RNA sequence: AUCGUUCAUCUAUCUAAGAGUAAUUUAGACAGACGGAAGUCCUAAAGGAUACCGCUUCGCAUAUAGGAGAAAUCUCUCGAAGGAACGCAAC
Numbered sequence: 001a002u003c004g005u006u007c008a009u010c011u012a013u014c015u016a017a018g019a020g021u022a023a024u025u026u027a028g029a030c031a032g033a034c035g036g037a038a039g040u041c042c043u044a045a046a047g048g049a050u051a052c053c054g055c056u057u058c059g060c061a062u063a064u065a066g067g068a069g070a071a072a073u074c075u076c077u078c079g080a081a082g083g084a085a086c087g088c089a090a091c
Stems, first nucleotide, its partner, number of pairs: 003087005009033003013029006036088001
Rfam assigns this 91-nucleotide sequence from Pleurocapsales cyanobacterium LEGE 10410 to the family "Glutamine riboswitch aptamer (glnA leader)". The literature on the family includes a 2015 paper in Cell Rep by Ren et al., "Structural and Dynamic Basis for Low-Affinity, High-Selectivity Binding of L-Glutamine by the Glutamine Riboswitch". Gene Ontology term of the family: glutamine binding.